Shown here is an 84-nucleotide RNA from Hucho hucho, a member of the family "Small nucleolar RNA SNORD35".
The family is grouped with related families in Rfam's "SNORD35 clan".
Rfam's curators write: U35 is a C/D box snoRNA located in intron 6 of ribosomal protein L13A and intron 3 of ribosomal protein S11 in humans and at homologous positions in mouse and chicken ribosomal protein genes.
Rfam classes the family as a C/D-box small nucleolar RNA.
[Rfam]
RNA sequence: UGCAAGUGCUGUUUUUCUCACGAUGGUCUUCCAAGCCGUUGUGGCUUUGACGAAACUGCCUGUAGGCAACUCUGAUGCAGUGUU
Numbered sequence: 001u002g003c004a005a006g007u008g009c010u011g012u013u014u015u016u017c018u019c020a021c022g023a024u025g026g027u028c029u030u031c032c033a034a035g036c037c038g039u040u041g042u043g044g045c046u047u048u049g050a051c052g053a054a055a056c057u058g059c060c061u062g063u064a065g066g067c068a069a070c071u072c073u074g075a076u077g078c079a080g081u082g083u084u
Base pairs, nucleotide, nucleotide: 001079002078003077004076